RNA sequence: CUCUUAUCAAGAGAGGUGGAGGGAAAGAGCCCGAUGAAACCCAGCAACCUGUCCUAUAGGACAAGGUGCUAAUUCUCUCAGAAGCAUGCUUCUGAAAGAUGAGGG
Dot-bracket structure: ((((((((....(.(((...(((..[[[[)))......))))((((.((.((((....))))..))))))...(]]]]((((((....))))))..)))))))))